Rfam assigns this 36-nucleotide RNA sequence to the family "DUF805b RNA". Rfam classes the family as a cis-regulatory element. The family's consensus secondary structure is taken from published work.
RNA sequence: ACGGAGGUUCCGAAAAUCCAAAAAACAGAGUAGGAA
Numbered sequence: 001a002c003g004g005a006g007g008u009u010c011c012g013a014a015a016a017u018c019c020a021a022a023a024a025a026c027a028g029a030g031u032a033g034g035a036a
Base pairs, nucleotide, nucleotide: 003019004018005017010034011033